[Rfam]
RNA sequence: CGCCUAAACCUUAUAGAUUUCCCAUAAGGCAUGGCAGAAAAAACCCGUCAAAGGUAUUAAGCUCGUCGUCAGAGCACCUUUGACGGGUCAUAUCCCGAAAGGGGUAUGGGUGGUCGCAAGGCCAUC
Numbered sequence: 001c002g003c004c005u006a007a008a009c010c011u012u013a014u015a016g017a018u019u020u021c022c023c024a025u026a027a028g029g030c031a032u033g034g035c036a037g038a039a040a041a042a043a044c045c046c047g048u049c050a051a052a053g054g055u056a057u058u059a060a061g062c063u064c065g066u067c068g069u070c071a072g073a074g075c076a077c078c079u080u081u082g083a084c085g086g087g088u089c090a091u092a093u094c095c096c097g098a099a100a101g102g103g104g105u106a107u108g109g110g111u112g113g114u115c116g117c118a119a120g121g122c123c124a125u126c
Stems, first nucleotide, its partner, number of pairs: 002035003009029006044087011061075004089108008109126006